[Rfam]
RNA sequence: GGGUGCUUAAGGCUGUCUGGCUUAAGCAUCGGUCAGGCAGAGAAAAGCCCCACGAGGUUUACACCAACGUGGGGCUAACACUCCACACCUGAACAAUGUGGAUGUUAGCCUCUUAACCGCCGCAAGGCAAUGGAGGGAACUGAUAUG
Numbered sequence: 001g002g003g004u005g006c007u008u009a010a011g012g013c014u015g016u017c018u019g020g021c022u023u024a025a026g027c028a029u030c031g032g033u034c035a036g037g038c039a040g041a042g043a044a045a046a047g048c049c050c051c052a053c054g055a056g057g058u059u060u061a062c063a064c065c066a067a068c069g070u071g072g073g074g075c076u077a078a079c080a081c082u083c084c085a086c087a088c089c090u091g092a093a094c095a096a097u098g099u100g101g102a103u104g105u106u107a108g109c110c111u112c113u114u115a116a117c118c119g120c121c122g123c124a125a126g127g128c129a130a131u132g133g134a135g136g137g138a139a140c141u142g143a144u145a146u147g
Base pairs, nucleotide, nucleotide: 001051002050003049005048006047007046008045013040014039015038016037017036018035019034020033021032022031052070053069054068056065057064058063071112072111073110074109075108078105079104080103082101084100085099086098087097118137120135
Dot-bracket structure: (((.((((....((((((((((........))))))))))....)))))))(((.(((....)))..)))(((((..(((.(.((((.........))))).)))..))))).....(.(..............).)..........
A member of the RNA family "sok antitoxin (CssrC)" from Chimaeribacter arupi, 147 nucleotides long. Rfam's curators write: Also identified in Shigella as CssrC.